[Rfam]
RNA sequence: GACACAUCCAGAGGAGUGGAGGGACUGGCCCUACGAAGCUCCGGCAACCACCCGCGAAUCAUGCCGACCGGGGGCAGGUGCCAAUUCCAGAGAGAUGUGUG
Numbered sequence: 001g002a003c004a005c006a007u008c009c010a011g012a013g014g015a016g017u018g019g020a021g022g023g024a025c026u027g028g029c030c031c032u033a034c035g036a037a038g039c040u041c042c043g044g045c046a047a048c049c050a051c052c053c054g055c056g057a058a059u060c061a062u063g064c065c066g067a068c069c070g071g072g073g074g075c076a077g078g079u080g081c082c083a084a085u086u087c088c089a090g091a092g093a094g095a096u097g098u099g100u101g
Stems, first nucleotide, its partner, number of pairs: 002100007013042005021031003025090004043082004048078002051073003086093001

The family of this 101-nucleotide RNA sequence from Patulibacter medicamentivorans is "SAM riboswitch aptamer (S box leader)". The family's consensus secondary structure is taken from published work.